Overview
Bacterial large subunit ribosomal RNA: a 227-nucleotide part of an RNA from Betaproteobacteria bacterium UKL13-2. It scores 2751 bits against the family's covariance model.
[Rfam]
RNA sequence: GACUUACGUUGUGUUGCGAGCUUAACCGAAUAGGGAAGGCGUAGCGAAAGCGAGUCUGAUAAGGGCGAUUAGUAGCACGGCGUAGACCCGAAACCGGAUGAUCUAUCCAUGGCCAGGAUGAAGGUGCCGUAACAGGUACUGGAGGUCCGAACCCACUAACGUUGAAAAGUUAGGGGAUGAGCUGUGGAUAGGGGUGAAAGGCUAAACAAAUCCGGAAAUAGCUGGUU
Numbered sequence: 001g002a003c004u005u006a007c008g009u010u011g012u013g014u015u016g017c018g019a020g021c022u023u024a025a026c027c028g029a030a031u032a033g034g035g036a037a038g039g040c041g042u043a044g045c046g047a048a049a050g051c052g053a054g055u056c057u058g059a060u061a062a063g064g065g066c067g068a069u070u071a072g073u074a075g076c077a078c079g080g081c082g083u084a085g086a087c088c089c090g091a092a093a094c095c096g097g098a099u100g101a102u103c104u105a106u107c108c109a110u111g112g113c114c115a116g117g118a119u120g121a122a123g124g125u126g127c128c129g130u131a132a133c134a135g136g137u138a139c140u141g142g143a144g145g146u147c148c149g150a151a152c153c154c155a156c157u158a159a160c161g162u163u164g165a166a167a168a169g170u171u172a173g174g175g176g177a178u179g180a181g182c183u184g185u186g187g188a189u190a191g192g193g194g195u196g197a198a199a200g201g202c203u204a205a206a207c208a209a210a211u212c213c214g215g216a217a218a219u220a221g222c223u224g225g226u227u
Base pairs, nucleotide, nucleotide: 005084006083007082008081009080010079011078012077013076014075015074016073017072020040021039022038023037026034027033044051045050054066055065056064057063087225088224090222094215095214096213097212098211099210103191104190105189106188107187108186109185110184111183112182113181114179116148117147118146119145123140124139125138126137127136128135152176153175154174156173157172158171159170160169193203194202195201